[Rfam]
RNA sequence: CUGCAGCGAUGACAUUCUGCAGUGACACCUUUGGAUUUGAUUGUGAAAAGAAAGUGUAAUUUCUGAGCAGU
Numbered sequence: 001c002u003g004c005a006g007c008g009a010u011g012a013c014a015u016u017c018u019g020c021a022g023u024g025a026c027a028c029c030u031u032u033g034g035a036u037u038u039g040a041u042u043g044u045g046a047a048a049a050g051a052a053a054g055u056g057u058a059a060u061u062u063c064u065g066a067g068c069a070g071u
Stems, first nucleotide, its partner, number of pairs: 001070004

A member of the RNA family "Small nucleolar RNA SNORD58" from Geococcyx californianus, 71 nucleotides long. The source organism's lineage runs through Eukaryota, Craniata, Gnathostomata, Archosauria and Geococcyx. A reference for the family is Galardi et al. (2002), "Purified box C/D snoRNPs are able to reproduce site-specific 2'-O-methylation of target RNA in vitro", Mol Cell Biol. Pairs were carried over by alignment from the consensus structure, which was predicted with PFOLD. Clan: SNORD58 clan. The family has 33 seed sequences and 2,484 matches in Rfam 15.1.